[Rfam]
RNA sequence: UGGCGCCCAACGUGGCAGCUGGAUACUGGGGGCACAUCGUGAGGGAGACGACGGAGAAAAAGGAGUGCACUCGCUAAAUCGCAAGGAAUUCGGAGACGUGCCGUGGGAGCCUGCUGUGACCGAAUCGAAAGUAAGUCAAUCCGUCUGAUCAUGGGGCAAGAACUGACAGCAUCAGAUUUAUGUCAAGCAAUUGAGAGAGGCUCUAAAGACACGAGGAGUAAAGGUUAGGACUGCAGAUUUAUUUCAUUUCUUUGAUUUUGUAAAGGACAUAUGUCCCU
Numbered sequence: 001u002g003g004c005g006c007c008c009a010a011c012g013u014g015g016c017a018g019c020u021g022g023a024u025a026c027u028g029g030g031g032g033c034a035c036a037u038c039g040u041g042a043g044g045g046a047g048a049c050g051a052c053g054g055a056g057a058a059a060a061a062g063g064a065g066u067g068c069a070c071u072c073g074c075u076a077a078a079u080c081g082c083a084a085g086g087a088a089u090u091c092g093g094a095g096a097c098g099u100g101c102c103g104u105g106g107g108a109g110c111c112u113g114c115u116g117u118g119a120c121c122g123a124a125u126c127g128a129a130a131g132u133a134a135g136u137c138a139a140u141c142c143g144u145c146u147g148a149u150c151a152u153g154g155g156g157c158a159a160g161a162a163c164u165g166a167c168a169g170c171a172u173c174a175g176a177u178u179u180a181u182g183u184c185a186a187g188c189a190a191u192u193g194a195g196a197g198a199g200g201c202u203c204u205a206a207a208g209a210c211a212c213g214a215g216g217a218g219u220a221a222a223g224g225u226u227a228g229g230a231c232u233g234c235a236g237a238u239u240u241a242u243u244u245c246a247u248u249u250c251u252u253u254g255a256u257u258u259u260g261u262a263a264a265g266g267a268c269a270u271a272u273g274u275c276c277c278u
Base pairs, nucleotide, nucleotide: 006031007030008029012026013025014024037051038050039049040048089133090129097122098121102118103117104116105115106114140158142156144155145154146153147152164205165201167199212254213253214252215251216250217249218248222240223239224238225237226236263278265276266275267274268273
RNA: Mason-Pfizer monkey virus packaging signal